[Rfam]
RNA: Ribosomal S15 leader
RNA sequence: GGUGCCGGCUGAAUCAGAGAUUGGCGGCACAAAUUAAAACAUCUUGUAUUAGGAAUGAGUUAUGUCUCUGAAUGCAGAAACUAAAGCAGCAAUCGUUGCAGAUUACGCACAAUGUGAA
Numbered sequence: 001g002g003u004g005c006c007g008g009c010u011g012a013a014u015c016a017g018a019g020a021u022u023g024g025c026g027g028c029a030c031a032a033a034u035u036a037a038a039a040c041a042u043c044u045u046g047u048a049u050u051a052g053g054a055a056u057g058a059g060u061u062a063u064g065u066c067u068c069u070g071a072a073u074g075c076a077g078a079a080a081c082u083a084a085a086g087c088a089g090c091a092a093u094c095g096u097u098g099c100a101g102a103u104u105a106c107g108c109a110c111a112a113u114g115u116g117a118a
Base pairs, nucleotide, nucleotide: 008025009024010023011022012021049071050070051069052068053067